MIR7486 microRNA precursor family: an 87-nucleotide RNA from Gossypium mustelinum. Rfam 15.1 lists 10,132 matches to the family in 36 species. The base pairs follow the family's consensus structure, which was predicted with RNAalifold.

RNA sequence: CAUGUCAGCGCGCUUUGUUGACAUGGCAACAAAUCACAUCCUCUAAAGCGCGAUUUGUGUUCACAUCAGCAAAGCGCGUUGACGUGG
Numbered sequence: 001c002a003u004g005u006c007a008g009c010g011c012g013c014u015u016u017g018u019u020g021a022c023a024u025g026g027c028a029a030c031a032a033a034u035c036a037c038a039u040c041c042u043c044u045a046a047a048g049c050g051c052g053a054u055u056u057g058u059g060u061u062c063a064c065a066u067c068a069g070c071a072a073a074g075c076g077c078g079u080u081g082a083c084g085u086g087g
Base pairs, nucleotide, nucleotide: 001086002085003084004083005082006081007080008079009078010077011076012075013074014073015072016071017070018069019068020067021066024063025062026061029058030057031056032055033054034053035052037050
NCBI's taxonomy places the organism under Eukaryota, Tracheophyta, Spermatophyta, malvids, Gossypium.